[Rfam]
RNA: Metazoan signal recognition particle RNA
Organism: Acanthosepion pharaonis
RNA sequence: GCUGGGAGUGUUGGCGUACUCCUGUAAUCCAGCUGCUUUGGAGGCUUGUUUGAGUGAACGGUUUGAGAGUGGGGUUCCUGGUCUACGUCCCAUUAUGGCGAUCGGGUGUCCGCACUAAGCCCGGCAUCAAUAUGGUUAGUUGGAGAGAGCUCAAACUGACCAGGUUGACUAAGGAGGGGCGAUUCGGUCCAGGGCGGAAACGCAGCAGACAAAAGACCCCGUAUCAGGCAGUAGUGGGAUCGCGCCUGUGAAUAGUGGUCGUAUGCCAGCCCGUUCAAUACAAUCGAACCUCAAACUUU
Numbered sequence: 001g002c003u004g005g006g007a008g009u010g011u012u013g014g015c016g017u018a019c020u021c022c023u024g025u026a027a028u029c030c031a032g033c034u035g036c037u038u039u040g041g042a043g044g045c046u047u048g049u050u051u052g053a054g055u056g057a058a059c060g061g062u063u064u065g066a067g068a069g070u071g072g073g074g075u076u077c078c079u080g081g082u083c084u085a086c087g088u089c090c091c092a093u094u095a096u097g098g099c100g101a102u103c104g105g106g107u108g109u110c111c112g113c114a115c116u117a118a119g120c121c122c123g124g125c126a127u128c129a130a131u132a133u134g135g136u137u138a139g140u141u142g143g144a145g146a147g148a149g150c151u152c153a154a155a156c157u158g159a160c161c162a163g164g165u166u167g168a169c170u171a172a173g174g175a176g177g178g179g180c181g182a183u184u185c186g187g188u189c190c191a192g193g194g195c196g197g198a199a200a201c202g203c204a205g206c207a208g209a210c211a212a213a214a215g216a217c218c219c220c221g222u223a224u225c226a227g228g229c230a231g232u233a234g235u236g237g238g239a240u241c242g243c244g245c246c247u248g249u250g251a252a253u254a255g256u257g258g259u260c261g262u263a264u265g266c267c268a269g270c271c272c273g274u275u276c277a278a279u280a281c282a283a284u285c286g287a288a289c290c291u292c293a294a295a296c297u298u299u
Stems, first nucleotide, its partner, number of pairs: 001045003004023008028042003048296007059286005067276007078269005084263004089258002092256005103248007110238002113236005119229003123225002126222002128167004133162009143152003169173001176219003180215001187210003194203003